Shown here is a 216-nucleotide RNA from Effrenium voratum, a member of the family "Protozoan signal recognition particle RNA". The base pairs follow the family's consensus structure, which is taken from published work. By type it is a non-coding RNA gene. It scores 96 bits against the family's covariance model. The literature on the family includes a 2009 paper in RNA Biol by Rosenblad et al., "Kinship in the SRP RNA family".

[Rfam]
RNA sequence: UCCCCUGUAACGCUUGCGAGCUCGGCGGUGAAGCAGGCAUAAGUCCUAACAACUGCGUGGCCUGUCCCCCUUUAGUGCGCAGGUUGCAAGGCUGCUGCAAAGUAAUUUGCGGUAGGCUGGCAAGUGGUGACUGAGGGGCGGCUCAGGCUGGCGACAGAGCAGGCAAAACUCAGCCCUGCGCACAGAUGGGGGAGAACUGGCUUAAGCAGUUGUUAG
Numbered sequence: 001u002c003c004c005c006u007g008u009a010a011c012g013c014u015u016g017c018g019a020g021c022u023c024g025g026c027g028g029u030g031a032a033g034c035a036g037g038c039a040u041a042a043g044u045c046c047u048a049a050c051a052a053c054u055g056c057g058u059g060g061c062c063u064g065u066c067c068c069c070c071u072u073u074a075g076u077g078c079g080c081a082g083g084u085u086g087c088a089a090g091g092c093u094g095c096u097g098c099a100a101a102g103u104a105a106u107u108u109g110c111g112g113u114a115g116g117c118u119g120g121c122a123a124g125u126g127g128u129g130a131c132u133g134a135g136g137g138g139c140g141g142c143u144c145a146g147g148c149u150g151g152c153g154a155c156a157g158a159g160c161a162g163g164c165a166a167a168a169c170u171c172a173g174c175c176c177u178g179c180g181c182a183c184a185g186a187u188g189g190g191g192g193a194g195a196a197c198u199g200g201c202u203u204a205a206g207c208a209g210u211u212g213u214u215a216g
Base pairs, nucleotide, nucleotide: 011018012017046216047215050212051211052210053209054208055207059202060201061200062199064197065196066192067191069190070189071188073186075183076182077181078180079179080178081177082176083175084123085122086121087120089118090117092115093114094113095112096111097110098109099108100107101106125129131173132172133171134170135169141164142163143162148157149156150155